RNA sequence: CUGGCCCCUGAUUGUCCAAACGCAAUUCUUGUCUCUGUGUCCGUCCGAGGGUUGGGUCUGGACAUCGUGGGCCGG
Numbered sequence: 001c002u003g004g005c006c007c008c009u010g011a012u013u014g015u016c017c018a019a020a021c022g023c024a025a026u027u028c029u030u031g032u033c034u035c036u037g038u039g040u041c042c043g044u045c046c047g048a049g050g051g052u053u054g055g056g057u058c059u060g061g062a063c064a065u066c067g068u069g070g071g072c073c074g075g
Stems, first nucleotide, its partner, number of pairs: 002074006009067004014063005021056001023054009
RNA: mir-219 microRNA precursor family
Organism: Pogona vitticeps